About this RNA: Shown here is a 473-nucleotide part of an RNA from Nocardioides sp. Root79, a member of the family "Bacterial large subunit ribosomal RNA". It scores 2747 bits against the family's covariance model. The source organism's lineage runs through Bacteria, Actinomycetota, Actinomycetes, Propionibacteriales and Nocardioides.
RNA sequence: CUCCCCGAAAUGCAUUUAGGUGCAGCGUUGCGUGUUUCUUGCCGGAGGUAGAGCACUGGAUAGCCGAUGGGCCCGACCAGGUUACUGACGUUAGCCAAACUCCGAAUGCCGGUAAGUGAGAGCGUGGCAGUGAGACUGUGGGGGAUAAGCUUCAUAGUCGAGAGGGAAACAGCCCAGACCAUCGGCUAAGGCCCCUAAGAGGCGGCUAAGUGGAAAAGGAUGUGGAGUCGCAGUGACAACCAGGAGGUUGGCUUGGAAGCAGCCACCCUUGAAAGAGUGCGUAAUAGCUCACUGGUCAAGUGAUUCCGCGCCGACAAUGUAGCGGGGCUCAAGCCGCCCGCCGAAGCCAUGGCAUUAGUACUUAACCCAAGCCGGACUUGAUCUUGGUUCAGGGGUACUGAUGGGUAGGGGAGCGUCGUGUCACGAGUGAAGGGCCGGAGUGAUCCAGGUCUGGACGUGACACGAGUGAGAAU
Number, nucleotide and partner (000 for none) at each position: 001c413002u412003c411004c410005c409006c408007g000008a000009a000010a000011u024012g023013c022014a021015u020016u000017u000018a000019g000020g015021u014022g013023c012024a011025g000026c130027g128028u127029u126030g125031c124032g123033u122034g000035u000036u121037u000038c116039u115040u114041g113042c112043c111044g110045g109046a000047g000048g000049u000050a000051g103052a101053g100054c000055a000056c000057u097058g096059g095060a000061u093062a092063g091064c090065c000066g000067a000068u000069g085070g083071g082072c081073c080074c000075g000076a000077c000078c000079a000080g073081g072082u071083u070084a000085c069086u000087g000088a000089c000090g064091u063092u062093a061094g000095c059096c058097a057098a000099a000100c053101u052102c000103c051104g000105a000106a000107u000108g000109c045110c044111g043112g042113u041114a040115a039116g038117u000118g000119a000120g000121a036122g033123c032124g031125u030126g029127g028128c027129a000130g026131u000132g000133a000134g159135a158136c157137u156138g155139u154140g153141g152142g151143g150144g000145a000146u000147a000148a000149g000150c143151u142152u141153c140154a139155u138156a137157g136158u135159c134160g000161a000162g000163a000164g175165g174166g173167a000168a000169a000170c000171a000172g000173c166174c165175c164176a000177g000178a000179c352180c351181a350182u349183c000184g348185g347186c346187u000188a000189a000190g342191g341192c340193c000194c000195c000196u000197a000198a000199g339200a000201g338202g337203c336204g335205g334206c333207u000208a000209a000210g000211u000212g000213g000214a000215a000216a000217a000218g312219g311220a000221u000222g309223u308224g307225g306226a305227g304228u303229c302230g301231c300232a000233g000234u000235g000236a000237c000238a000239a296240c295241c294242a293243g292244g000245a269246g268247g267248u000249u000250g264251g263252c262253u000254u000255g000256g000257a000258a000259g000260c000261a000262g252263c251264c250265a000266c000267c247268c246269u245270u274271g000272a000273a000274a270275g290276a000277g000278u000279g288280c287281g000282u000283a000284a000285u000286a000287g280288c279289u000290c275291a000292c243293u242294g241295g240296u239297c000298a000299a000300g231301u230302g229303a228304u227305u226306c225307c224308g223309c222310g000311c219312c218313g000314a000315c000316a000317a000318u000319g000320u000321a000322g000323c000324g000325g000326g000327g000328c000329u000330c000331a000332a000333g206334c205335c204336g203337c202338c201339c199340g192341c191342c190343g000344a000345a000346g186347c185348c184349a182350u181351g180352g179353c403354a402355u401356u400357a399358g398359u397360a396361c395362u394363u393364a000365a000366c000367c000368c000369a000370a000371g000372c000373c000374g000375g000376a000377c000378u000379u000380g000381a000382u000383c000384u000385u000386g000387g000388u000389u000390c000391a000392g000393g363394g362395g361396u360397a359398c358399u357400g356401a355402u354403g353404g000405g000406u000407a000408g006409g005410g004411g003412a002413g001414c468415g000416u465417c464418g463419u462420g461421u460422c459423a458424c457425g456426a000427g000428u000429g000430a000431a000432g452433g451434g450435c449436c448437g446438g445439a444440g000441u000442g000443a000444u439445c438446c437447a000448g436449g435450u434451c433452u432453g000454g000455a000456c425457g424458u423459g422460a421461c420462a419463c418464g417465a416466g000467u000468g414469a000470g000471a000472a000473u000